sRNA-Xcc1: an 88-nucleotide RNA sequence from Sodalis glossinidius. The family's consensus secondary structure was predicted with RNAalifold. It is one of the family's seed sequences. The family's RNA type in Rfam is small RNA. Lineage of the source: Bacteria > Pseudomonadota > Enterobacterales > Sodalis > Sodalis glossinidius.
RNA sequence: GGUCGGGUAGCGAGUAGUGAUACAACACCCUUAGGGGGAAAGCUGCUGGCCGACUUUGCACGGUGUUCAAGUACCCGACCGCCCCACU
Numbered sequence: 001g002g003u004c005g006g007g008u009a010g011c012g013a014g015u016a017g018u019g020a021u022a023c024a025a026c027a028c029c030c031u032u033a034g035g036g037g038g039a040a041a042g043c044u045g046c047u048g049g050c051c052g053a054c055u056u057u058g059c060a061c062g063g064u065g066u067u068c069a070a071g072u073a074c075c076c077g078a079c080c081g082c083c084c085c086a087c088u
Stems, first nucleotide, its partner, number of pairs: 001080009013047004018042001028037003049064004